Rfam assigns this 93-nucleotide sequence from Pacificitalea manganoxidans to the family "Rhodo-rpoB RNA". The source organism's lineage runs through Bacteria, Pseudomonadati, Pseudomonadota, Alphaproteobacteria and Pacificitalea. It scores 50 bits against the family's covariance model. The base pairs follow the family's consensus structure, which is taken from published work.
RNA sequence: GGUUCGGGAGCUGCCGGUGGGACGGUAUGCAGGAAUUGGACCUCAAACCCCCUUCAUUCGUGAGCGGUGCGGCCUUUCCCGCAGGCCUGCAUG
Dot-bracket structure: (((((....(((((((......))))).)).......)))))........................(((((((((.......))))).)))).